[Rfam]
RNA sequence: UAGCAAAGCUAAGCGCCAUGCACCAGGUAAGGGAUCGUGAACAAUAACAGCCGUUAUUGCCAUUGCCAGGUUAACGAGGUGAAGAGUUUAUCGAAAAUUCGGCGGAUGCUCUUCCAUGCCGGUUUCGGGCGUGUUAUAUGCUGUGAAAUAUGUGGGUGACUGCAAAAUAAACUCGGCAUAACCGAAACGA
Numbered sequence: 001u002a003g004c005a006a007a008g009c010u011a012a013g014c015g016c017c018a019u020g021c022a023c024c025a026g027g028u029a030a031g032g033g034a035u036c037g038u039g040a041a042c043a044a045u046a047a048c049a050g051c052c053g054u055u056a057u058u059g060c061c062a063u064u065g066c067c068a069g070g071u072u073a074a075c076g077a078g079g080u081g082a083a084g085a086g087u088u089u090a091u092c093g094a095a096a097a098u099u100c101g102g103c104g105g106a107u108g109c110u111c112u113u114c115c116a117u118g119c120c121g122g123u124u125u126c127g128g129g130c131g132u133g134u135u136a137u138a139u140g141c142u143g144u145g146a147a148a149u150a151u152g153u154g155g156g157u158g159a160c161u162g163c164a165a166a167a168u169a170a171a172c173u174c175g176g177c178a179u180a181a182c183c184g185a186a187a188c189g190a
Base pairs, nucleotide, nucleotide: 022071023070024069026067027066028065030063081114082113083112084111085110091102092101093100094099115133116132117131118130119129120128137180138179139178140177141176142175143174151164152163153162154161155160
Dot-bracket structure: .....................(((.(((.(................................).))).))).........(((((.....((((....)))).......)))))((((((.......))))))...(((((((.......(((((....))))).........)))))))..........
A member of the RNA family "glmS glucosamine-6-phosphate activated ribozyme aptamer" from Clostridium sp. chh4-2, 190 nucleotides long. Rfam describes the family as follows. This entry contains a glucosamine-6-phosphate activated ribozyme that is found in the mRNA for GlmS. GlmS is an enzyme that uses fructose-6-phosphate and glutamine to generate glucosamine-6-phosphate. The ribozyme catalyses self cleavage of the glmS mRNA that is thought to regulate GlmS activity. Rfam classes the family as a riboswitch. The match comes from Rfam's covariance-model search (60 bits).